This 101-nucleotide sequence from Grimontia hollisae belongs to the Rfam family "Qrr RNA". Rfam links the family to the GO term quorum sensing. NCBI's taxonomy places the organism under Bacteria, Pseudomonadota, Vibrionaceae, Grimontia, Grimontia hollisae. For this family Rfam cites "The Small RNA Chaperone Hfq and Multiple Small RNAs Control Quorum Sensing in Vibrio harveyi and Vibrio cholerae" (Lenz et al., Cell, 2004). A search with the family's covariance model found it, with a score of 90 bits. The base pairs follow the family's consensus structure, which is taken from published work.
[Rfam]
RNA sequence: UGACCCUUCUAGGGUCACCUAGCCAACUGACGUUGUUUGUGAGCACUUUGUUCACUGAAACAAGAUAGCCAACCGACCUUUUUGCGGUUGGCUUUUUUUUA
Numbered sequence: 001u002g003a004c005c006c007u008u009c010u011a012g013g014g015u016c017a018c019c020u021a022g023c024c025a026a027c028u029g030a031c032g033u034u035g036u037u038u039g040u041g042a043g044c045a046c047u048u049u050g051u052u053c054a055c056u057g058a059a060a061c062a063a064g065a066u067a068g069c070c071a072a073c074c075g076a077c078c079u080u081u082u083u084g085c086g087g088u089u090g091g092c093u094u095u096u097u098u099u100u101a
Stems, first nucleotide, its partner, number of pairs: 001017006034065001036063001039055007069091007